This 67-nucleotide sequence from Nitrosospira lacus belongs to the Rfam family "int-alpA RNA". It scores 58 bits against the family's covariance model. The organism belongs to Nitrosospira, within Bacteria. Acidobacteria (1 example), Planctomycetes (1 example), Proteobacteria. The family has 167 seed sequences and 577 matches in Rfam 15.1. It is annotated as a small RNA.
[Rfam]
RNA sequence: GCCACCCCUAGCCCGGCCAAGCGAAAAGCGGAAACCUUCACCGCCUGGGGUGGCAGCUUAUUGAAGG
Numbered sequence: 001g002c003c004a005c006c007c008c009u010a011g012c013c014c015g016g017c018c019a020a021g022c023g024a025a026a027a028g029c030g031g032a033a034a035c036c037u038u039c040a041c042c043g044c045c046u047g048g049g050g051u052g053g054c055a056g057c058u059u060a061u062u063g064a065a066g067g
Stems, first nucleotide, its partner, number of pairs: 001054008011022002028044004035067005